[Rfam]
RNA sequence: ACCUUCCUUGUCUUGGGGUGACGCGGGUUGCUCAAUGAGCGUGUAGCGAGAACAACCCUGCUAACACCGUACCAACACAUUUCGCAUCACCUGAGCUUAACGGUUCGGGCUAUGGUGCAAUUUUUGGAACC
Numbered sequence: 001a002c003c004u005u006c007c008u009u010g011u012c013u014u015g016g017g018g019u020g021a022c023g024c025g026g027g028u029u030g031c032u033c034a035a036u037g038a039g040c041g042u043g044u045a046g047c048g049a050g051a052a053c054a055a056c057c058c059u060g061c062u063a064a065c066a067c068c069g070u071a072c073c074a075a076c077a078c079a080u081u082u083c084g085c086a087u088c089a090c091c092u093g094a095g096c097u098u099a100a101c102g103g104u105u106c107g108g109g110c111u112a113u114g115g116u117g118c119a120a121u122u123u124u125u126g127g128a129a130c131c
Stems, first nucleotide, its partner, number of pairs: 006018004023061004027056004032051002039047002084118006090109008
RNA: U4atac minor spliceosomal RNA
Organism: Conger conger